[Rfam]
RNA sequence: GCCGAGCUUUGUAACGCAAGCUUAUAACCCGAGUGGGGGCUUUGAGGUUCUGGAACAUUGGCUCAGUAUUAGAGGGUCGGUUCCGGGUUGACUAUCUUCUGGCUCGCCCAUUCCAAGCCAGGAGUUGAACCAUGUGGCUCGAGCGAAGGCUCUGGGUCUCUUGGUUCCUAGAGAGGAGGGAACCGCGUAAGGCUGGCUUCACAGAGCAACGAUUACCUCCCGCUCUUGGCAGUGGAAGGAUAACGGGUCGGUGUCCCUCGGAUCCACCGUGGGCCGCUAGACUGUCCCAAUUGAACCAAACCUUUU
Numbered sequence: 001g002c003c004g005a006g007c008u009u010u011g012u013a014a015c016g017c018a019a020g021c022u023u024a025u026a027a028c029c030c031g032a033g034u035g036g037g038g039g040c041u042u043u044g045a046g047g048u049u050c051u052g053g054a055a056c057a058u059u060g061g062c063u064c065a066g067u068a069u070u071a072g073a074g075g076g077u078c079g080g081u082u083c084c085g086g087g088u089u090g091a092c093u094a095u096c097u098u099c100u101g102g103c104u105c106g107c108c109c110a111u112u113c114c115a116a117g118c119c120a121g122g123a124g125u126u127g128a129a130c131c132a133u134g135u136g137g138c139u140c141g142a143g144c145g146a147a148g149g150c151u152c153u154g155g156g157u158c159u160c161u162u163g164g165u166u167c168c169u170a171g172a173g174a175g176g177a178g179g180g181a182a183c184c185g186c187g188u189a190a191g192g193c194u195g196g197c198u199u200c201a202c203a204g205a206g207c208a209a210c211g212a213u214u215a216c217c218u219c220c221c222g223c224u225c226u227u228g229g230c231a232g233u234g235g236a237a238g239g240a241u242a243a244c245g246g247g248u249c250g251g252u253g254u255c256c257c258u259c260g261g262a263u264c265c266a267c268c269g270u271g272g273g274c275c276g277c278u279a280g281a282c283u284g285u286c287c288c289a290a291u292u293g294a295a296c297c298a299a300a301c302c303u304u305u306u
Stems, first nucleotide, its partner, number of pairs: 001040003004023006028037003044305004049300001051298003056293002058290003064284004069280004074275002077272002079265002082262006090255002093253002099251008108239002111237005117230009127167006134160001136158006142151003168173001175220005186211003193204003

Rfam assigns this 306-nucleotide sequence from Prunus dulcis to the family "Plant signal recognition particle RNA". The source organism's lineage runs through Eukaryota, Spermatophyta, eudicotyledons, Gunneridae and Prunus. For this family Rfam cites "SRPDB: Signal Recognition Particle Database" (Rosenblad et al., Nucleic Acids Res, 2003). Rfam 15.1 lists 4,988 matches to the family in 266 species. The base pairs follow the family's consensus structure, which is taken from published work. It scores 242 bits against the family's covariance model. The family's RNA type in Rfam is non-coding RNA gene.